This 79-nucleotide RNA from Ornithorhynchus anatinus belongs to the Rfam family "mir-27 microRNA precursor family".
On this family, see Chen et al., Genes Dev 2005: "The developmental miRNA profiles of zebrafish as determined by small RNA cloning".
Rfam links the family to the GO terms RISC complex and miRNA-mediated post-transcriptional gene silencing.
The organism belongs to Ornithorhynchus, within Eukaryota.
[Rfam]
RNA sequence: UCGCGGCGCAGAGCUUAGCUGAUUGGUGAACAGUGAUUGCUGGACUCUUUGUUCACAGUGGCUAAGUUCUGCGCCCGCA
Numbered sequence: 001u002c003g004c005g006g007c008g009c010a011g012a013g014c015u016u017a018g019c020u021g022a023u024u025g026g027u028g029a030a031c032a033g034u035g036a037u038u039g040c041u042g043g044a045c046u047c048u049u050u051g052u053u054c055a056c057a058g059u060g061g062c063u064a065a066g067u068u069c070u071g072c073g074c075c076c077g078c079a
Stems, first nucleotide, its partner, number of pairs: 011069010026056007
Dot-bracket structure: ..........((((((((((.....(((((((.................)))))))...))))))))))..........